[Rfam]
RNA: mir-36 microRNA precursor family
Organism: Caenorhabditis remanei
RNA sequence: UGCUCUCUGUGACGAGAGCCACGCCAAUUCUUACCGCGGUAAUAGAACUGCAUAGUUUCUAUCACCGGGUGAAAAUUCGGCUCGGAUCUCUUAACAGAC
Numbered sequence: 001u002g003c004u005c006u007c008u009g010u011g012a013c014g015a016g017a018g019c020c021a022c023g024c025c026a027a028u029u030c031u032u033a034c035c036g037c038g039g040u041a042a043u044a045g046a047a048c049u050g051c052a053u054a055g056u057u058u059c060u061a062u063c064a065c066c067g068g069g070u071g072a073a074a075a076u077u078c079g080g081c082u083c084g085g086a087u088c089u090c091u092u093a094a095c096a097g098a099c
Base pairs, nucleotide, nucleotide: 015089016088017087019085020084023081024080025079026077027076028075029074031072032071033070034069035068037067039065040064042062043061044060